[Rfam]
RNA sequence: CGUCACGAGUGCCAGCGUCAAGCCCCGGCUUGCUGGCCGGCAACCCUCCUCCGCGGCGGGGUGCUCCGGGUGAAGACAUGGCCGCUCCCGACCGGGAGCGGCAAGCGCGGAUC
Numbered sequence: 001c002g003u004c005a006c007g008a009g010u011g012c013c014a015g016c017g018u019c020a021a022g023c024c025c026c027g028g029c030u031u032g033c034u035g036g037c038c039g040g041c042a043a044c045c046c047u048c049c050u051c052c053g054c055g056g057c058g059g060g061g062u063g064c065u066c067c068g069g070g071u072g073a074a075g076a077c078a079u080g081g082c083c084g085c086u087c088c089c090g091a092c093c094g095g096g097a098g099c100g101g102c103a104a105g106c107g108c109g110g111a112u113c
Stems, first nucleotide, its partner, number of pairs: 002077003009038001011037006021030002039065003044061003048056002081102009
RNA: SAM (S-adenosyl methionine) riboswitch aptamer
Organism: Trebonia kvetii